[Rfam]
RNA sequence: UAGCCUGAAAUGAUGUUAUGAAUUCAUGUCUCUUCUCUGAGAUGUAUCAUGGAGACAAUUAGAUGCAUUUCUGAUCAGGCUU
Numbered sequence: 001u002a003g004c005c006u007g008a009a010a011u012g013a014u015g016u017u018a019u020g021a022a023u024u025c026a027u028g029u030c031u032c033u034u035c036u037c038u039g040a041g042a043u044g045u046a047u048c049a050u051g052g053a054g055a056c057a058a059u060u061a062g063a064u065g066c067a068u069u070u071c072u073g074a075u076c077a078g079g080c081u082u
Base pairs, nucleotide, nucleotide: 002081003080004079005078
The family of this 82-nucleotide sequence from Accipiter nisus is "Small nucleolar RNA SNORD111". On this family, see Huttenhofer et al., EMBO J 2001: "RNomics: an experimental approach that identifies 201 candidates for novel, small, non-messenger RNAs in mouse". The base pairs follow the family's consensus structure, which was predicted with RNAalifold. The organism belongs to Accipiter, within Eukaryota. The match comes from Rfam's covariance-model search (57 bits).